[Rfam]
RNA sequence: AGGAGGAACAGCCCCAGUGGUUACGGCAGCUCUGGAAGCCUGGAUUCAGCCUCCGCAGGAACUACGGGGCUCUCCAUCCGCAGGGCCUGGAGGCUCCGGGGCGGG
Numbered sequence: 001a002g003g004a005g006g007a008a009c010a011g012c013c014c015c016a017g018u019g020g021u022u023a024c025g026g027c028a029g030c031u032c033u034g035g036a037a038g039c040c041u042g043g044a045u046u047c048a049g050c051c052u053c054c055g056c057a058g059g060a061a062c063u064a065c066g067g068g069g070c071u072c073u074c075c076a077u078c079c080g081c082a083g084g085g086c087c088u089g090g091a092g093g094c095u096c097c098g099g100g101g102c103g104g105g
Stems, first nucleotide, its partner, number of pairs: 002097004009089003012085003019078003025072001028071007036063001039059004
Dot-bracket structure: .((((...((((((....(((...(..(((((((.(..((((.............))))...).))))))))...)))....))).)))....))))........
A member of the RNA family "mir-8834 microRNA precursor family" from Nyctereutes procyonoides, 105 nucleotides long. The organism belongs to Nyctereutes, within Eukaryota. A search with the family's covariance model found it, with a score of 77 bits.